The record is a 215-nucleotide sequence from Neobacillus vireti, which matches "T-box leader" in Rfam.
It is annotated as a cis-regulatory leader.
It scores 115 bits against the family's covariance model.
The organism belongs to Neobacillus vireti, within Bacteria.
A reference for the family is Gerdeman et al. (2003), "Solution structure of the Bacillus subtilis T-box antiterminator RNA: seven nucleotide bulge characterized by stacking and flexibility", J Mol Biol.
RNA sequence: GAAAAAUCAAUGAAAAAGAGAGUAGUUAUCGAGGAUCUUUUAGCGAGUCGGGGGCGGUGUGAGCCUGAUACAGAUCAGAUAAUGAAGCGCACUUUUGAGAUGCAAACCCGAAACCGAGUAGGGUACGCCGGAGAAUGCUCCGUUACAAAGGGAAAGUUGGUUCUUUUUGAACAAUUAGAGUGGUACCGCGGGAUAUUCAAACUCUCGUCUCUUUA
Numbered sequence: 001g002a003a004a005a006a007u008c009a010a011u012g013a014a015a016a017a018g019a020g021a022g023u024a025g026u027u028a029u030c031g032a033g034g035a036u037c038u039u040u041u042a043g044c045g046a047g048u049c050g051g052g053g054g055c056g057g058u059g060u061g062a063g064c065c066u067g068a069u070a071c072a073g074a075u076c077a078g079a080u081a082a083u084g085a086a087g088c089g090c091a092c093u094u095u096u097g098a099g100a101u102g103c104a105a106a107c108c109c110g111a112a113a114c115c116g117a118g119u120a121g122g123g124u125a126c127g128c129c130g131g132a133g134a135a136u137g138c139u140c141c142g143u144u145a146c147a148a149a150g151g152g153a154a155a156g157u158u159g160g161u162u163c164u165u166u167u168u169g170a171a172c173a174a175u176u177a178g179a180g181u182g183g184u185a186c187c188g189c190g191g192g193a194u195a196u197u198c199a200a201a202c203u204c205u206c207g208u209c210u211c212u213u214u215a
Stems, first nucleotide, its partner, number of pairs: 007100002015095004025083006036072001038070001047069006103127001106124004129142003160172004177212004188208005